Background: This 62-nucleotide RNA sequence from Chlorocebus sabaeus belongs to the Rfam family "U7 small nuclear RNA". Lineage of the source: Eukaryota > Bilateria > Gnathostomata > Dipnotetrapodomorpha > Chlorocebus. Rfam describes the family as follows. Animal histone pre-mRNAs are spliced by a different mechanism than nuclear pre-mRNAs and self-splicing introns. A search with the family's covariance model found it, with a score of 62 bits. Pairs were carried over by alignment from the consensus structure, which was predicted with PFOLD.
Nucleotides: 062
Stems, first nucleotide, its partner, number of pairs: 034059011
Number, partner (000 for none) and nucleotide at each position: 001000c002000a003000g004000u005000g006000u007000u008000a009000c010000a011000g012000c013000u014000c015000u016000c017000u018000u019000a020000g021000a022000a023000u024000a025000u026000a027000u028000c029000u030000a031000g032000c033000a034059g035058g036057u037056u038055u039054u040053c041052u042051g043050g044049u045000c046000u047000u048000c049044a050043c051042u052041g053040g054039a055038a056037a057036g058035c059034c060000u061000c062000c